[Rfam]
A member of the RNA family "c-di-GMP-I riboswitch aptamer" from Methylomonas lenta, 76 nucleotides long. GEMM was predicted in a large-scale screen for bacterial structured RNA regulatory elements. NCBI's taxonomy places the organism under Bacteria, Pseudomonadati, Pseudomonadota, Gammaproteobacteria, Methylomonas.
RNA sequence: GACCGCUAAAGCCAAACCUAUCGUAAGGUAGGGGCAGAAAGUCGCGGAUCCUCUCCAGGAAAGCCGGGCUACCGAA
Numbered sequence: 001g002a003c004c005g006c007u008a009a010a011g012c013c014a015a016a017c018c019u020a021u022c023g024u025a026a027g028g029u030a031g032g033g034g035c036a037g038a039a040a041g042u043c044g045c046g047g048a049u050c051c052u053c054u055c056c057a058g059g060a061a062a063g064c065c066g067g068g069c070u071a072c073c074g075a076a
Stems, first nucleotide, its partner, number of pairs: 012037001017032006040070004045066003049060004